[Rfam]
RNA sequence: AAGGUAUUAGAAAAACCAUUUCAUAACUUUGUCAAAGUUAAAUUAUAGGCUAAAUCCUAUAUAUCUUA
Numbered sequence: 001a002a003g004g005u006a007u008u009a010g011a012a013a014a015a016c017c018a019u020u021u022c023a024u025a026a027c028u029u030u031g032u033c034a035a036a037g038u039u040a041a042a043u044u045a046u047a048g049g050c051u052a053a054a055u056c057c058u059a060u061a062u063a064u065c066u067u068a
Stems, first nucleotide, its partner, number of pairs: 001067007010022004024040005045060005
tRNA: a 68-nucleotide sequence. The family's RNA type in Rfam is transfer RNA. From the family's description: Transfer RNA (tRNA) molecules are approximately 80 nucleotides in length.